[Rfam]
RNA sequence: CUUUCUAGCACCUGCAUUGUACACACUGUGUGUCUGUCUGAAAAUGCACAGCGCAUGCAAUGUGGAUUCUCUGGAA
Dot-bracket structure: ...........((.(((((((..(.((((((..............)))))).)..))))))).))...........
RNA: mir-460 microRNA precursor family
Organism: Pitta sordida